Caenorhabditis sRNA ceN56: a 122-nucleotide RNA from Caenorhabditis japonica. The sequence is in the family's curated seed alignment. By type it is a small RNA. Lineage of the source: Eukaryota > Bilateria > Ecdysozoa > Nematoda > Caenorhabditis.

RNA sequence: CGCCCAAUGAUAUCAACACCUCGCUGAUUCCUGCCCACCCGAAGGUCUCGAGGCGAGUGGGGUCGUCGAGGAAAGGCCGACAACGGUGGGAACCAUGAUACUGAUUAUGAGAGAUGAGGGCU
Numbered sequence: 001c002g003c004c005c006a007a008u009g010a011u012a013u014c015a016a017c018a019c020c021u022c023g024c025u026g027a028u029u030c031c032u033g034c035c036c037a038c039c040c041g042a043a044g045g046u047c048u049c050g051a052g053g054c055g056a057g058u059g060g061g062g063u064c065g066u067c068g069a070g071g072a073a074a075g076g077c078c079g080a081c082a083a084c085g086g087u088g089g090g091a092a093c094c095a096u097g098a099u100a101c102u103g104a105u106u107a108u109g110a111g112a113g114a115u116g117a118g119g120g121c122u
Stems, first nucleotide, its partner, number of pairs: 002121004034090006044078004048071002052067001054061001094109006